Nucleotides: 119
Base pairs, nucleotide, nucleotide: 001015002014003013004012005011016041017040018039019038020037021036023034024033026031046118048091049090050089051088052087053086054080055079057077058076061073062072063071064070096115097114098113099112100111101110
Number, partner (000 for none) and nucleotide at each position: 001015g002014g003013a004012g005011g006000u007000g008000g009000g010000c011005c012004c013003u014002c015001c016041g017040c018039a019038g020037u021036c022000g023034c024033c025000a026031u027000g028000c029000a030000g031026g032000c033024g034023g035000a036021g037020g038019c039018u040017g041016c042000a043000a044000a045000c046118c047000g048091c049090c050089g051088u052087a053086a054080g055079c056000u057077g058076c059000g060000c061073c062072g063071g064070u065000u066000a067000a068000g069000a070064g071063c072062c073061g074000g075000g076058g077057u078000g079055g080054u081000g082000a083000g084000c085000g086053u087052u088051a089050c090049g091048g092000a093000a094000a095000a096115g097114g098113c099112g100111u101110g102000c103000c104000g105000g106000u107000g108000a109000g110101c111100g112099c113098g114097u115096c116000a117000g118046g119000u